[Rfam]
RNA sequence: UGGAAGUGAUGAAAUAGAGAUAAUUGGAUGUCUCUUUGAAUGGAGUGUGUGUGAUAAAUGGAAUUUAAACCAAGUCAUACUGGGGGUGGGGUGUGGGGAAUGUGUGUGUGCGCGUGUAUAGGAGAGGCUUUAAACGGGGGCACUGAUAAUGCCGUGCUGAUUCCGGAGUGCAUCUGAGGCAUGUUGUUAAGUUCUGGGGUGCCACUUUACAACAUUGCCAAUGAUUAAAGCCCAAAACAAGCCCACCAAGACAAGCCUUGGCAUCUUAAAUCUCUAACAGGUUCAUUAAUGAAAGUGAUCCUGUGAUCUGAUCCAA
Number, nucleotide and partner (000 for none) at each position: 001u315002g314003g313004a312005a000006g000007u000008g000009a000010u000011g000012a000013a000014a000015u000016a000017g000018a000019g000020a000021u000022a000023a000024u000025u000026g000027g000028a000029u000030g000031u000032c000033u000034c000035u000036u000037u000038g000039a000040a000041u000042g000043g000044a000045g000046u000047g000048u000049g000050u000051g000052u000053g000054a000055u000056a000057a000058a000059u000060g000061g000062a000063a000064u000065u000066u000067a000068a000069a000070c000071c000072a000073a000074g000075u000076c000077a000078u000079a000080c000081u000082g000083g000084g000085g000086g000087u000088g000089g000090g000091g000092u000093g000094u000095g000096g000097g000098g000099a000100a000101u000102g000103u000104g000105u000106g000107u000108g000109u000110g000111c000112g000113c000114g000115u000116g000117u000118a000119u000120a000121g000122g000123a000124g000125a000126g000127g000128c000129u000130u000131u000132a000133a000134a000135c000136g000137g000138g000139g000140g000141c000142a000143c000144u000145g000146a000147u000148a000149a000150u000151g000152c000153c000154g000155u000156g000157c000158u000159g000160a000161u000162u000163c000164c000165g000166g000167a000168g000169u000170g000171c000172a000173u000174c000175u000176g000177a000178g000179g000180c000181a000182u214183g213184u212185u211186g210187u209188u000189a207190a000191g202192u201193u000194c199195u000196g000197g000198g000199g194200u000201g192202c191203c000204a000205c000206u000207u189208u000209a187210c186211a185212a184213c183214a182215u000216u000217g000218c000219c000220a000221a000222u000223g000224a000225u000226u000227a000228a000229a000230g000231c000232c000233c000234a000235a000236a000237a000238c000239a000240a000241g000242c000243c000244c000245a000246c000247c000248a000249a000250g000251a000252c000253a000254a000255g000256c000257c000258u000259u000260g000261g000262c000263a000264u000265c000266u000267u000268a000269a000270a000271u000272c000273u000274c000275u000276a000277a000278c000279a000280g000281g000282u000283u000284c000285a000286u000287u000288a000289a000290u000291g000292a000293a000294a000295g000296u000297g000298a000299u000300c000301c000302u000303g000304u000305g000306a000307u000308c000309u000310g000311a000312u004313c003314c002315a001316a000

Small Cajal body-specific RNA 7: a 316-nucleotide RNA sequence from Cathartes aura. It scores 187 bits against the family's covariance model. Rfam classes the family as a small Cajal body RNA. For this family Rfam cites "Cajal body-specific small nuclear RNAs: a novel class of 2'-O-methylation and pseudouridylation guide RNAs" (Darzacq et al., EMBO J, 2002). Taxonomically the source falls in Cathartes (Eukaryota, Neoaves, Accipitrimorphae, Cathartidae).